[Rfam]
RNA sequence: CUUCUCCUUUAACAUGGAGGUGCUUGCUGUGAGUUUGAAAAAUUAAGUGCUUCCAUGUUUUAGUUGAAG
Dot-bracket structure: (((...((..((((((((((((((((.(.............).))))))))))))))))..))...)))